[Rfam]
RNA sequence: AUAGAUUUAUGUAGCAGUCUUCAUAUAUCCUCGAUAAUAUGGUUCGAGAGUCUCUACCGGGGCACCGUAAAUGUCCCGACUAUGAAGGCAGAAGGACGGUUU
Numbered sequence: 001a002u003a004g005a006u007u008u009a010u011g012u013a014g015c016a017g018u019c020u021u022c023a024u025a026u027a028u029c030c031u032c033g034a035u036a037a038u039a040u041g042g043u044u045c046g047a048g049a050g051u052c053u054c055u056a057c058c059g060g061g062g063c064a065c066c067g068u069a070a071a072u073g074u075c076c077c078g079a080c081u082a083u084g085a086a087g088g089c090a091g092a093a094g095g096a097c098g099g100u101u102u
Stems, first nucleotide, its partner, number of pairs: 018088008030048005058078007
This 102-nucleotide RNA sequence from Melghiribacillus thermohalophilus belongs to the Rfam family "Purine riboswitch aptamer". Its family is annotated with purine nucleobase biosynthetic process in the Gene Ontology. The source organism's lineage runs through Bacteria, Bacillati, Bacillota, Bacillaceae and Melghiribacillus. The match comes from Rfam's covariance-model search (85 bits).